A member of the RNA family "mir-160 microRNA precursor family" from Hibiscus syriacus, 86 nucleotides long. The family has 7 seed sequences and 1,502 matches in Rfam 15.1. Gene Ontology terms of the family: RISC complex and miRNA-mediated post-transcriptional gene silencing. The literature on the family includes a 2002 paper in Cell by Rhoades et al., "Prediction of plant microRNA targets". Pairs were carried over by alignment from the consensus structure, which was predicted with PFOLD.

RNA sequence: AUGUGCCUGGCUCCCUGUAUGCCAUUUGCUGAACCUGUCAAAACACCGAUGGCCUCUGCCAAUGGCGUAUGAGGAACCAAGCAUAU
Dot-bracket structure: ((((((.(((.(((.(((((((((...((............................))...))))))))).))).))).))))))